[Rfam]
RNA sequence: UGGCGUUGAAGCAAUUGGCGGGGUCAGUUGGUAUUACCUUCCGUUGAUUGUGGAGCCUGACCAAGGGUUUCGUGGCAUCCACGGACUGACUAGGCAAAAGCCGAAAGAAAACCACGAUAA
Numbered sequence: 001u002g003g004c005g006u007u008g009a010a011g012c013a014a015u016u017g018g019c020g021g022g023g024u025c026a027g028u029u030g031g032u033a034u035u036a037c038c039u040u041c042c043g044u045u046g047a048u049u050g051u052g053g054a055g056c057c058u059g060a061c062c063a064a065g066g067g068u069u070u071c072g073u074g075g076c077a078u079c080c081a082c083g084g085a086c087u088g089a090c091u092a093g094g095c096a097a098a099a100g101c102c103g104a105a106a107g108a109a110a111a112c113c114a115c116g117a118u119a120a
Base pairs, nucleotide, nucleotide: 002057003056004055011051012050013049014048015047016046017045018044019043020042021041022040024089025088026087027086072115073114074113093102094101095100
About this RNA: Shown here is a 120-nucleotide RNA sequence, a member of the family "drum RNA". The base pairs follow the family's consensus structure, which is taken from published work. Firmicutes, Bacteroidetes (1 example), Proteobacteria (2 examples), Spirochaetes (2 examples).